ZMP/ZTP riboswitch aptamer (pfl RNA motif): a 127-nucleotide sequence from Variovorax sp. Sphag1AA. The base pairs follow the family's consensus structure, which is taken from published work.

RNA sequence: CGGCGAGCACGCGACUGGCGAUAGGCGCUGCACUUUUUCAGGUGCGCUGCGCUGACGUGGACUACCACUGGGGAGCGUGCUGCCUGCACCUUGAGCAGGUGUUCAGCCGUUCGCCUGGGCAGCCCUU
Numbered sequence: 001c002g003g004c005g006a007g008c009a010c011g012c013g014a015c016u017g018g019c020g021a022u023a024g025g026c027g028c029u030g031c032a033c034u035u036u037u038u039c040a041g042g043u044g045c046g047c048u049g050c051g052c053u054g055a056c057g058u059g060g061a062c063u064a065c066c067a068c069u070g071g072g073g074a075g076c077g078u079g080c081u082g083c084c085u086g087c088a089c090c091u092u093g094a095g096c097a098g099g100u101g102u103u104c105a106g107c108c109g110u111u112c113g114c115c116u117g118g119g120c121a122g123c124c125c126u127u
Base pairs, nucleotide, nucleotide: 003084006081007080008079009078010077011076012075015072016071017115018114019113020112021111057068058067059066060065104122106120107119108118